RNA sequence: AUGUGUGUAGGAGCAAUUGAUUUAUUUCAGUGGAAACAAGGAAACACUUGAUAUAAAUUAAUUUUUAA
Numbered sequence: 001a002u003g004u005g006u007g008u009a010g011g012a013g014c015a016a017u018u019g020a021u022u023u024a025u026u027u028c029a030g031u032g033g034a035a036a037c038a039a040g041g042a043a044a045c046a047c048u049u050g051a052u053a054u055a056a057a058u059u060a061a062u063u064u065u066u067a068a
Stems, first nucleotide, its partner, number of pairs: 015063005022056002027051003030047003
Record summary
This 68-nucleotide RNA belongs to the Rfam family "Cyano-1 RNA". Rfam classes the family as a small RNA. It is one of the family's seed sequences. The family's consensus secondary structure is taken from published work.